[Rfam]
RNA sequence: GGAUGUGAGGGCCAUCUGGCUGCGACAUCUGUCACCACAUUGAUCGCCAGGGUUAAUCUGGCUGAUCUGGCUGGCUAGACAGGUGUCCUCUUUCUCUUUCACCACUCCAUGUGUGUCCCUCCCGAAGCUGCGUGCUCUGUCGAAGAGGAUGACCUUCCUGAUAAAGGAGAGGACCGUUUUUCGGUCAAGGGUAUAUAAGUAGCUGUGCUCCCCUGCUAGAACCUCCAAACAAGCUCUCAAGGUCCACUUGUAGGAGAAUGUAGUGUGGUCAAGCUUCCAAGACUACAGACAUGUCCAAAUGAGGUGCUGCAUGUGGCAGUCUAUCUUUCUUU
Numbered sequence: 001g002g003a004u005g006u007g008a009g010g011g012c013c014a015u016c017u018g019g020c021u022g023c024g025a026c027a028u029c030u031g032u033c034a035c036c037a038c039a040u041u042g043a044u045c046g047c048c049a050g051g052g053u054u055a056a057u058c059u060g061g062c063u064g065a066u067c068u069g070g071c072u073g074g075c076u077a078g079a080c081a082g083g084u085g086u087c088c089u090c091u092u093u094c095u096c097u098u099u100c101a102c103c104a105c106u107c108c109a110u111g112u113g114u115g116u117c118c119c120u121c122c123c124g125a126a127g128c129u130g131c132g133u134g135c136u137c138u139g140u141c142g143a144a145g146a147g148g149a150u151g152a153c154c155u156u157c158c159u160g161a162u163a164a165a166g167g168a169g170a171g172g173a174c175c176g177u178u179u180u181u182c183g184g185u186c187a188a189g190g191g192u193a194u195a196u197a198a199g200u201a202g203c204u205g206u207g208c209u210c211c212c213c214u215g216c217u218a219g220a221a222c223c224u225c226c227a228a229a230c231a232a233g234c235u236c237u238c239a240a241g242g243u244c245c246a247c248u249u250g251u252a253g254g255a256g257a258a259u260g261u262a263g264u265g266u267g268g269u270c271a272a273g274c275u276u277c278c279a280a281g282a283c284u285a286c287a288g289a290c291a292u293g294u295c296c297a298a299a300u301g302a303g304g305u306g307c308u309g310c311a312u313g314u315g316g317c318a319g320u321c322u323a324u325c326u327u328u329c330u331u332u
Stems, first nucleotide, its partner, number of pairs: 001108003005102007014092001018090002024087010035074002038069002042067004046062003116172002118167003122139001124137002127135002140161003147157003202274003208268002211265001213263004223256004229251005297332003301327005306320005
Dot-bracket structure: (((.(((((((..(...((....((((((((((.((.((..(((((((...........))).))))))...))...)))))))))).)).)...)))))))...))).......(((((.(.((.((.....)))).)(((....(((.....))).)))...)))...)).............................(((...((.(.((((......((((..(((((.............))))).))))...)))).).))...)))......................(((.((((((((((.....)))))..)))))..)))
The record is a 332-nucleotide sequence from Rousettus aegyptiacus, which matches "7SK RNA" in Rfam. The family is grouped with related families in Rfam's "7SK clan". A search with the family's covariance model found it, with a score of 324 bits. Rfam describes the family as follows. 7SK was discovered as an abundant small nuclear RNA in the mid-70s but a possible function has only recently been suggested. Two independent studies have found that 7SK RNA binds the CDK9/cyclin T complex (known as elongation factor P-TEFb). P-TEFb activates transcription by phosphorylating the C-terminal domain of RNA polymerase II. This process is negatively regulated by the 7SK RNP. The secondary structure of 7SK RNA shown here was proposed by Wasserman and Steitz on the basis of chemical modification and enzymatic cleavage experiments. A reference for the family is Blencowe (2002), "Transcription: surprising role for an elusive small nuclear RNA", Curr Biol. The family's consensus secondary structure is taken from published work.